[Rfam]
RNA sequence: GGGACACUCAAAUGUGGAGCACUCUUCUGGAUGGAGUGGAAAGUGCUACACCAUUUGAGUGUUCC
Numbered sequence: 001g002g003g004a005c006a007c008u009c010a011a012a013u014g015u016g017g018a019g020c021a022c023u024c025u026u027c028u029g030g031a032u033g034g035a036g037u038g039g040a041a042a043g044u045g046c047u048a049c050a051c052c053a054u055u056u057g058a059g060u061g062u063u064c065c
Stems, first nucleotide, its partner, number of pairs: 004062009014052001015050002018047006025041003